RNA sequence: UGCAAGAAUGGGGAUGGGGUUCCCCCGAAACCGCCCAAGCUUUUCGCAUCUGGGCUGAUGACUCCUGCCAGGCG
Numbered sequence: 001u002g003c004a005a006g007a008a009u010g011g012g013g014a015u016g017g018g019g020u021u022c023c024c025c026c027g028a029a030a031c032c033g034c035c036c037a038a039g040c041u042u043u044u045c046g047c048a049u050c051u052g053g054g055c056u057g058a059u060g061a062c063u064c065c066u067g068c069c070a071g072g073c074g
Stems, first nucleotide, its partner, number of pairs: 010026004016065006033055004
The record is a 74-nucleotide RNA sequence from Mesorhizobium sp. WSM3876, which matches "Fluoride riboswitch aptamer (crcB RNA motif)" in Rfam.
The family's consensus secondary structure is taken from published work.
A search with the family's covariance model found it, with a score of 57 bits.
Rfam links the family to the GO terms positive regulation of gene expression and response to fluoride.